Shown here is a 268-nucleotide RNA from Albula goreensis, a member of the family "Small Cajal body specific RNA 6". Taxonomically the source falls in Albula (Eukaryota, Teleostomi, Albuliformes, Albulidae). Gene Ontology terms of the family: RNA processing and nucleolus. The match comes from Rfam's covariance-model search (125 bits).
[Rfam]
RNA sequence: GGUCAGUGAUGAAUUGUAAAAGGUCUGAUGCCCUUGUUUCACCCAGCUUCCCUUUAGCUCCCAGAUGCCCCUGCCGUAUUCCCAGCAUGCUCUAGGUGUGUAGUGUUGGGUUCAGGGGCGUCUGACAGAUAGGAUGACCUCUCAGCCUGUGUCUCCUGGAGAAUAAGGGGUUACAGUGAUGAUGGACAUCCAACAUAGCCAAAUUCCAAGGAGUAUCAGGGUCUGGGGCAAAAGCAGGCAAAUGAUCUCAAGUUUUCAAGCUGAGACC
Numbered sequence: 001g002g003u004c005a006g007u008g009a010u011g012a013a014u015u016g017u018a019a020a021a022g023g024u025c026u027g028a029u030g031c032c033c034u035u036g037u038u039u040c041a042c043c044c045a046g047c048u049u050c051c052c053u054u055u056a057g058c059u060c061c062c063a064g065a066u067g068c069c070c071c072u073g074c075c076g077u078a079u080u081c082c083c084a085g086c087a088u089g090c091u092c093u094a095g096g097u098g099u100g101u102a103g104u105g106u107u108g109g110g111u112u113c114a115g116g117g118g119c120g121u122c123u124g125a126c127a128g129a130u131a132g133g134a135u136g137a138c139c140u141c142u143c144a145g146c147c148u149g150u151g152u153c154u155c156c157u158g159g160a161g162a163a164u165a166a167g168g169g170g171u172u173a174c175a176g177u178g179a180u181g182a183u184g185g186a187c188a189u190c191c192a193a194c195a196u197a198g199c200c201a202a203a204u205u206c207c208a209a210g211g212a213g214u215a216u217c218a219g220g221g222u223c224u225g226g227g228g229c230a231a232a233a234g235c236a237g238g239c240a241a242a243u244g245a246u247c248u249c250a251a252g253u254u255u256u257c258a259a260g261c262u263g264a265g266a267c268c
Stems, first nucleotide, its partner, number of pairs: 001268004036247001038245002042227005047221001058213004062124007081110008090100001132191005138185001148175004153170005
From the family's description: U88 is small Cajal body specific RNA (scaRNA). scaRNAs are a novel class of small nuclear RNAs which localise to the Cajal bodies.